[Rfam]
RNA sequence: GGCUGAAAAUGGUGCUUUCGGUUAUGGCCGAAAUGGAAAAUUCGGCCAAAAAUAAAUAAUCGGCCGAAAGGGCCUGCAGGCCCAGCCGACCCGGGGGGCUCGGCCUGGGCCUAGAGGCUGAGCUGCCUGCUCGGCAAUCUUGCAAGCUCAGGCGAGCCGCCCCCGGCUUGGCCUAGAGGCCGAGCUGCCCGCUCGGCC
Number, nucleotide and partner (000 for none) at each position: 001g047002g046003c045004u044005g000006a000007a042008a041009a000010u039011g000012g000013u036014g000015c000016u000017u032018u031019c030020g029021g028022u027023u000024a000025u000026g000027g022028c021029c020030g019031a018032a017033a000034u000035g000036g013037a000038a000039a010040a000041u008042u007043c000044g004045g003046c002047c001048a000049a000050a000051a000052a000053u000054a000055a000056a000057u000058a000059a000060u000061c000062g091063g090064c000065c088066g087067a000068a000069a000070g083071g082072g081073c080074c000075u000076g000077c000078a000079g000080g073081c072082c071083c070084a000085g000086c000087c066088g065089a000090c063091c062092c000093g000094g000095g000096g000097g000098g000099c000100u000101c000102g000103g000104c000105c000106u000107g000108g000109g000110c000111c166112u165113a000114g000115a000116g000117g000118c151119u150120g149121a148122g000123c000124u144125g143126c000127c000128u000129g000130c000131u000132c000133g000134g000135c000136a000137a000138u000139c000140u000141u000142g000143c125144a124145a000146g000147c000148u121149c120150a119151g118152g000153c000154g000155a000156g000157c000158c000159g000160c000161c000162c000163c000164c000165g112166g111167c000168u000169u000170g000171g000172c000173c000174u000175a000176g000177a000178g198179g197180c196181c195182g194183a193184g192185c000186u000187g000188c000189c000190c000191g000192c184193u183194c182195g181196g180197c179198c178
RNA: Collinsella-1 RNA